[Rfam]
The record is a 283-nucleotide sequence from Felis catus, which matches "RNase MRP" in Rfam. Pairs were carried over by alignment from the consensus structure, which is taken from published work. NCBI's taxonomy places the organism under Eukaryota, Eumetazoa, Mammalia, Boreoeutheria, Felis. On this family, see Schmitt et al., FASEB J 1993: "Secondary structure of RNase MRP RNA as predicted by phylogenetic comparison".
RNA sequence: GUUCGUGCUGAAGGCCUGUUUCCUAGGCUACAAACGGGGGACUUGUUCCUUAUUAACGCCUAGGGGAAAGUCCCCGGACCGCGGGCAGAGAGUGCCACGUGCAUGCGCACGUAGACCUUCCCUGUGUUUCACUGUAAAGUCCGCCAAGAAGCGACCCCCCCCCCCGUAUACGGCGGGGGAGCUGAGCGGCGUGUUGCAGGGGUGUGUCCUCAGUCAGCUCUCCUAGUUACGCAGGCAGUGCGUUUGUGCGCACCAACCACACGGGGCUCAUUCUCAGUGCGGC
Numbered sequence: 001g002u003u004c005g006u007g008c009u010g011a012a013g014g015c016c017u018g019u020u021u022c023c024u025a026g027g028c029u030a031c032a033a034a035c036g037g038g039g040g041a042c043u044u045g046u047u048c049c050u051u052a053u054u055a056a057c058g059c060c061u062a063g064g065g066g067a068a069a070g071u072c073c074c075c076g077g078a079c080c081g082c083g084g085g086c087a088g089a090g091a092g093u094g095c096c097a098c099g100u101g102c103a104u105g106c107g108c109a110c111g112u113a114g115a116c117c118u119u120c121c122c123u124g125u126g127u128u129u130c131a132c133u134g135u136a137a138a139g140u141c142c143g144c145c146a147a148g149a150a151g152c153g154a155c156c157c158c159c160c161c162c163c164c165c166g167u168a169u170a171c172g173g174c175g176g177g178g179g180a181g182c183u184g185a186g187c188g189g190c191g192u193g194u195u196g197c198a199g200g201g202g203u204g205u206g207u208c209c210u211c212a213g214u215c216a217g218c219u220c221u222c223c224u225a226g227u228u229a230c231g232c233a234g235g236c237a238g239u240g241c242g243u244u245u246g247u248g249c250g251c252a253c254c255a256a257c258c259a260c261a262c263g264g265g266g267c268u269c270a271u272u273c274u275c276a277g278u279g280c281g282g283c
Base pairs, nucleotide, nucleotide: 003282004281005280006279007278008277009276010275011274014236015235016234017233018232019231022064023063024062025061026060027059028058037051038050039049040048041047069268070267072266073265074264075263084096085095086094087093097112098111099110100109101108102107114208115207116206120201121200122199123198124197125196130193131192132191141189142188143187144186165175166174167173238253239252240251241250242249243248